[Rfam]
RNA: Fluoride riboswitch aptamer (crcB RNA motif)
Organism: Hephaestia caeni
RNA sequence: UUUAGACGCGGCAAUGGACUCUGCCAGGCCCUAGUGGCCGAACUGCUCGCAAGGGCUGAUGAUUCCUACCCUGGU
Numbered sequence: 001u002u003u004a005g006a007c008g009c010g011g012c013a014a015u016g017g018a019c020u021c022u023g024c025c026a027g028g029c030c031c032u033a034g035u036g037g038c039c040g041a042a043c044u045g046c047u048c049g050c051a052a053g054g055g056c057u058g059a060u061g062a063u064u065c066c067u068a069c070c071c072u073g074g075u
Stems, first nucleotide, its partner, number of pairs: 010025004016066003020062002045056004